A member of the RNA family "RT-16 RNA", 209 nucleotides long.
The family's RNA type in Rfam is small RNA.
Rfam's curators put it in the seed alignment.

RNA sequence: CCUGAGUAGCAUGAGAUAUCUAUUUCCCAAUAGACGUUGAUGAAAGCAGCAAGCUUAGGGCUACAUGUAAAUCCACUACGACUAACGGCGAUUUAAACCAUUGAGUCAUAAAAUACAGUAACGCUAGCUAGUAGCAAGGAAAGAUCCUAGGGAAAUCUUGAGCCAACCCUACCGUUGCAGUGAAACCUUUGGUGGAUUUGCUACUUUCU
Numbered sequence: 001c002c003u004g005a006g007u008a009g010c011a012u013g014a015g016a017u018a019u020c021u022a023u024u025u026c027c028c029a030a031u032a033g034a035c036g037u038u039g040a041u042g043a044a045a046g047c048a049g050c051a052a053g054c055u056u057a058g059g060g061c062u063a064c065a066u067g068u069a070a071a072u073c074c075a076c077u078a079c080g081a082c083u084a085a086c087g088g089c090g091a092u093u094u095a096a097a098c099c100a101u102u103g104a105g106u107c108a109u110a111a112a113a114u115a116c117a118g119u120a121a122c123g124c125u126a127g128c129u130a131g132u133a134g135c136a137a138g139g140a141a142a143g144a145u146c147c148u149a150g151g152g153a154a155a156u157c158u159u160g161a162g163c164c165a166a167c168c169c170u171a172c173c174g175u176u177g178c179a180g181u182g183a184a185a186c187c188u189u190u191g192g193u194g195g196a197u198u199u200g201c202u203a204c205u206u207u208c209u
Stems, first nucleotide, its partner, number of pairs: 001059007009050002012048002067201010085188001087186001118178005125171003134163002